[Rfam]
The family of this 123-nucleotide sequence from Candidatus Erwinia haradaeae is "Alpha operon ribosome binding site". Pairs were carried over by alignment from the consensus structure, which is taken from published work. It is annotated as a cis-regulatory element. About the family: The bacterial alpha operon ribosome binding site is surrounded by this complex pseudoknotted structure. Translation of the mRNA produces 4 ribosomal protein products, one of which (S4) acts as a translational repressor by binding to the nested pseudoknot region.
Nucleotides: 123
Stems, first nucleotide, its partner, number of pairs: 004068002008064002010061003024107003031098004039122001
Number, partner (000 for none) and nucleotide at each position: 001000a002000c003000u004068a005067u006000a007000u008064g009063u010061u011060c012059u013000a014000a015000u016000a017000g018000a019000a020000g021000u022000a023000u024107u025106c026105u027000a028000a029000a030000a031098u032097g033096g034095g035000c036000u037000u038000u039122u040000g041000g042000a043000u044000a045000a046000a047000a048000g049000a050000a051000a052000c053000a054000c055000c056000a057000g058000g059012a060011g061010a062000c063009a064008c065000c066000a067005g068004u069000u070000c071000u072000u073000a074000a075000g076000a077000u078000a079000u080000a081000g082000g083000a084000g085000u086000g087000c088000a089000u090000a091000g092000u093000g094000g095034c096033c097032c098031g099000u100000a101000u102000a103000g104000c105026a106025g107024g108000g109000a110000u111000u112000a113000a114000c115000a116000u117000u118000c119000c120000u121000g122039a123000u